Rfam assigns this 72-nucleotide sequence from Mastigocoleus testarum to the family "tRNA". The match comes from Rfam's covariance-model search (76 bits).

RNA sequence: GCCAGCAUGGCUCAGUGGUAGAGCACUCGACUUGUAAUCGAGCGGUCGUCGGUUCAAAUCCGACUGCUGGCU
Numbered sequence: 001g002c003c004a005g006c007a008u009g010g011c012u013c014a015g016u017g018g019u020a021g022a023g024c025a026c027u028c029g030a031c032u033u034g035u036a037a038u039c040g041a042g043c044g045g046u047c048g049u050c051g052g053u054u055c056a057a058a059u060c061c062g063a064c065u066g067c068u069g070g071c072u
Stems, first nucleotide, its partner, number of pairs: 001071007010024004026042005048064005

Lineage of the source: Bacteria > Bacillati > Cyanobacteriota > Mastigocoleus > Mastigocoleus testarum.